[Rfam]
RNA sequence: CUUAGUGUCAUGUGGUUGAAACAAGAUUUGUCGUGAGAAGUCAGCCGAGACCAUAGUAGCGAUAUGAGAGUGUCGUCAAGGGU
Numbered sequence: 001c002u003u004a005g006u007g008u009c010a011u012g013u014g015g016u017u018g019a020a021a022c023a024a025g026a027u028u029u030g031u032c033g034u035g036a037g038a039a040g041u042c043a044g045c046c047g048a049g050a051c052c053a054u055a056g057u058a059g060c061g062a063u064a065u066g067a068g069a070g071u072g073u074c075g076u077c078a079a080g081g082g083u
Stems, first nucleotide, its partner, number of pairs: 001025002005022002008019003041048002050083003059076006

Rfam assigns this 83-nucleotide RNA from Bacteroides cellulosilyticus to the family "Group II catalytic intron D1-D4-1".
It scores 47 bits against the family's covariance model.
Lineage of the source: Bacteria > Bacteroidia > Bacteroidales > Bacteroidaceae > Bacteroides cellulosilyticus.
The literature on the family includes a 2001 paper in Trends Genet by Bonen and Vogel, "The ins and outs of group II introns".
The family has 237 seed sequences and 2,508 matches in Rfam 15.1.